[Rfam]
RNA sequence: AUUGUUUCUCAGUCUUUUGGCUAAGAUCAAAUAUAGUAUCUUUUUUUUUUUAAAAAGACCAAUGGUUCAGAAUAGAAAAUGUAGUAUCUUUUCUCAGCAGUUUAACAUGUUCUAUUCAAGGACAACCUAUUAAAUGGAUUUUUGGAACAGGGAGAUGGAGUAGGAGCUUGCUCUGUCCACUCCAUGCAUUGACUUGGUAGUGCAAGACUACCAGGAAUGGUGCAUCCUCC
Numbered sequence: 001a002u003u004g005u006u007u008c009u010c011a012g013u014c015u016u017u018u019g020g021c022u023a024a025g026a027u028c029a030a031a032u033a034u035a036g037u038a039u040c041u042u043u044u045u046u047u048u049u050u051u052a053a054a055a056a057g058a059c060c061a062a063u064g065g066u067u068c069a070g071a072a073u074a075g076a077a078a079a080u081g082u083a084g085u086a087u088c089u090u091u092u093c094u095c096a097g098c099a100g101u102u103u104a105a106c107a108u109g110u111u112c113u114a115u116u117c118a119a120g121g122a123c124a125a126c127c128u129a130u131u132a133a134a135u136g137g138a139u140u141u142u143u144g145g146a147a148c149a150g151g152g153a154g155a156u157g158g159a160g161u162a163g164g165a166g167c168u169u170g171c172u173c174u175g176u177c178c179a180c181u182c183c184a185u186g187c188a189u190u191g192a193c194u195u196g197g198u199a200g201u202g203c204a205a206g207a208c209u210a211c212c213a214g215g216a217a218u219g220g221u222g223c224a225u226c227c228u229c230c
Base pairs, nucleotide, nucleotide: 007026008025009024011022012021013020014019047107049105109123110122111121112120113119151183152182153181154180157177158176163174164173165172166171186223187222188221189220190219191218193215194214195213196212197211198210